[Rfam]
The family of this 82-nucleotide RNA sequence from Dryobates pubescens is "Small nucleolar RNA SNORD127". The family's consensus secondary structure was predicted with WAR. Rfam classes the family as a C/D-box small nucleolar RNA. NCBI's taxonomy places the organism under Eukaryota, Euteleostomi, Neognathae, Piciformes, Dryobates. The literature on the family includes a 2006 paper in Nucleic Acids Res by Yang et al., "snoSeeker: an advanced computational package for screening of guide and orphan snoRNA genes in the human genome". Rfam 15.1 lists 541 matches to the family in 527 species.
RNA sequence: GGGCAACAAUGAUGACAGGAGUUGUAGCUGUAAUGGUUCAUUACUGCAUGGAGACACCAGUCCCUCUAAACUGAGGUUGCCC
Numbered sequence: 001g002g003g004c005a006a007c008a009a010u011g012a013u014g015a016c017a018g019g020a021g022u023u024g025u026a027g028c029u030g031u032a033a034u035g036g037u038u039c040a041u042u043a044c045u046g047c048a049u050g051g052a053g054a055c056a057c058c059a060g061u062c063c064c065u066c067u068a069a070a071c072u073g074a075g076g077u078u079g080c081c082c
Base pairs, nucleotide, nucleotide: 001082002081003080004079005078006077007076